[Rfam]
RNA sequence: GACGCUUCUUGGGUGACACAACACGGAAUUGGACUCCCUCCUCUCUGGUUCUGGGUGCGUCACCCGAUAACUGCA
Number, nucleotide and partner (000 for none) at each position: 001g000002a000003c073004g000005c000006u070007u069008c000009u067010u066011g065012g064013g063014u062015g061016a060017c059018a000019c057020a056021a000022c054023a000024c000025g052026g051027a050028a049029u048030u047031g046032g045033a044034c000035u000036c000037c000038c000039u000040c000041c000042u000043c000044u033045c032046u031047g030048g029049u028050u027051c026052u025053g000054g022055g000056u020057g019058c000059g017060u016061c015062a014063c013064c012065c011066g010067a009068u000069a007070a006071c000072u000073g003074c000075a000
RNA: mir-9223 microRNA precursor family